[Rfam]
RNA: Bacterial small signal recognition particle RNA
RNA sequence: GGGUGGGACCGGCGCGGCAGAAACCACCGAACCCCGCCAGGUCCGAGAGGAAGCAACGGUAAGGAGGCAACUCUGGGCGCCGCCGGGAUACCUGCCCGGA
Numbered sequence: 001g002g003g004u005g006g007g008a009c010c011g012g013c014g015c016g017g018c019a020g021a022a023a024c025c026a027c028c029g030a031a032c033c034c035c036g037c038c039a040g041g042u043c044c045g046a047g048a049g050g051a052a053g054c055a056a057c058g059g060u061a062a063g064g065a066g067g068c069a070a071c072u073c074u075g076g077g078c079g080c081c082g083c084c085g086g087g088a089u090a091c092c093u094g095c096c097c098g099g100a
Stems, first nucleotide, its partner, number of pairs: 004094004009086006015077001018075004024067002027064002034059003042051003